[Rfam]
RNA sequence: GACGGGGUGCCCACGUCACUCUCCUCUAGGAUCUUUACCCUUUCCUAGAAGUCGUCGUGGGCAUUAAAAA
Numbered sequence: 001g002a003c004g005g006g007g008u009g010c011c012c013a014c015g016u017c018a019c020u021c022u023c024c025u026c027u028a029g030g031a032u033c034u035u036u037a038c039c040c041u042u043u044c045c046u047a048g049a050a051g052u053c054g055u056c057g058u059g060g061g062c063a064u065u066a067a068a069a070a
Stems, first nucleotide, its partner, number of pairs: 006065010017054001027047005
RNA: potC RNA